A member of the RNA family "Eukaryotic large subunit ribosomal RNA" from Fusarium longipes, 491 nucleotides of a longer RNA. The family's consensus secondary structure is taken from published work.

[Rfam]
RNA sequence: UAGAACAAUGUAGAUAAGGGAAGUCGGCAAAAUAGAUCCGUAACUUCGGGAUAAGGAUUGGCUCUAAGGGUUGGGCACGUUGGGCCUUGGGCGGACGCCUUGGGAGCAGGCUGCCACUAGUCGGGCAACCGACCGGAGGCGGCCAGCAUCCGAGUGUUGAUGCCCUUGGCAGGCUUCGGCCGUCCGGCGUGCGGUUAACAACCAACUUAGAACUGGUACGGACAAGGGGAAUCUGACUGUCUAAUUAAAACAUAGCAUUGCGAUGGCCAGAAAGUGGUGUUGACGCAAUGUGAUUUCUGCCCAGUGCUCUGAAUGUCAAAGUGAAGUAAUUCAACCAAGCGCGGGUAAACGGCGGGAGUAACUAUGACUCUCUUAAGGUAGCCAAAUGCCUCGUCAUCUAAUUAGUGACGCGCAUGAAUGGAUUAACGAGAUUCCCACUGUCCCUAUCUACUAUCUAGCGAAACCACAGCCAAGGGAACGGGCUUGGCAGA
Numbered sequence: 001u002a003g004a005a006c007a008a009u010g011u012a013g014a015u016a017a018g019g020g021a022a023g024u025c026g027g028c029a030a031a032a033u034a035g036a037u038c039c040g041u042a043a044c045u046u047c048g049g050g051a052u053a054a055g056g057a058u059u060g061g062c063u064c065u066a067a068g069g070g071u072u073g074g075g076c077a078c079g080u081u082g083g084g085c086c087u088u089g090g091g092c093g094g095a096c097g098c099c100u101u102g103g104g105a106g107c108a109g110g111c112u113g114c115c116a117c118u119a120g121u122c123g124g125g126c127a128a129c130c131g132a133c134c135g136g137a138g139g140c141g142g143c144c145a146g147c148a149u150c151c152g153a154g155u156g157u158u159g160a161u162g163c164c165c166u167u168g169g170c171a172g173g174c175u176u177c178g179g180c181c182g183u184c185c186g187g188c189g190u191g192c193g194g195u196u197a198a199c200a201a202c203c204a205a206c207u208u209a210g211a212a213c214u215g216g217u218a219c220g221g222a223c224a225a226g227g228g229g230a231a232u233c234u235g236a237c238u239g240u241c242u243a244a245u246u247a248a249a250a251c252a253u254a255g256c257a258u259u260g261c262g263a264u265g266g267c268c269a270g271a272a273a274g275u276g277g278u279g280u281u282g283a284c285g286c287a288a289u290g291u292g293a294u295u296u297c298u299g300c301c302c303a304g305u306g307c308u309c310u311g312a313a314u315g316u317c318a319a320a321g322u323g324a325a326g327u328a329a330u331u332c333a334a335c336c337a338a339g340c341g342c343g344g345g346u347a348a349a350c351g352g353c354g355g356g357a358g359u360a361a362c363u364a365u366g367a368c369u370c371u372c373u374u375a376a377g378g379u380a381g382c383c384a385a386a387u388g389c390c391u392c393g394u395c396a397u398c399u400a401a402u403u404a405g406u407g408a409c410g411c412g413c414a415u416g417a418a419u420g421g422a423u424u425a426a427c428g429a430g431a432u433u434c435c436c437a438c439u440g441u442c443c444c445u446a447u448c449u450a451c452u453a454u455c456u457a458g459c460g461a462a463a464c465c466a467c468a469g470c471c472a473a474g475g476g477a478a479c480g481g482g483c484u485u486g487g488c489a490g491a
Stems, first nucleotide, its partner, number of pairs: 001457004010451007018443003035059005044049001060214002063211006069203005075192009084170003089165003099154006106147002109144007117136002120133005215219001227436007234428002238252003255291008266278004295422003299353003304350002306346004311342001314341003322333004354372006373377001393409005470487005